The family of this 216-nucleotide RNA from Brevundimonas sp. Root1279 is "permuted transfer-messenger RNA".
[Rfam]
RNA sequence: GGCGAUAAACGUGCCUGUAAUAAGCGGACCGGACCCGGGUGCGAUUCCCGGCGGCUCCACCAUUUCUCCCCGCGUUAUCGGCGGAGCGAGCAUGGGGCCGACUAGCAUCGACGGACGUGUAAAGAGGAUUGCUUUCGCUCGUCCUGACCCACCGUAUCGGGUCAUUUUCUAACUGCGAACGAUAACUUCGCUGGGGAAUACGCCGUCGCCGCGUAA
Number, nucleotide and partner (000 for none) at each position: 001g139002g138003c137004g136005a135006u000007a000008a000009a000010c000011g000012u000013g000014c127015c126016u125017g000018u000019a000020a000021u000022a000023a000024g000025c117026g116027g000028a000029c114030c113031g112032g000033a000034c000035c051036c050037g049038g048039g047040u000041g000042c000043g000044a000045u000046u000047c039048c038049c037050g036051g035052c100053g099054g098055c097056u096057c095058c094059a000060c000061c000062a000063u000064u000065u000066c000067u000068c000069c000070c000071c000072g000073c000074g000075u000076u000077a000078u000079c000080g000081g000082c000083g000084g000085a000086g000087c000088g000089a000090g000091c000092a000093u000094g058095g057096g056097g055098c054099c053100g052101a000102c000103u000104a000105g000106c000107a000108u000109c000110g000111a000112c031113g030114g029115a000116c026117g025118u000119g000120u000121a000122a000123a000124g000125a016126g015127g014128a000129u000130u000131g000132c000133u000134u000135u005136c004137g003138c002139u001140c154141g153142u000143c000144c000145u000146g000147a000148c000149c000150c000151a000152c000153c141154g140155u000156a000157u000158c000159g000160g000161g000162u000163c000164a000165u000166u000167u000168u000169c000170u000171a000172a000173c000174u000175g000176c000177g000178a000179a000180c000181g000182a000183u000184a000185a000186c000187u000188u000189c000190g000191c000192u000193g000194g000195g000196g000197a000198a000199u000200a000201c000202g000203c000204c000205g000206u000207c000208g000209c000210c000211g000212c000213g000214u000215a000216a000
It scores 123 bits against the family's covariance model.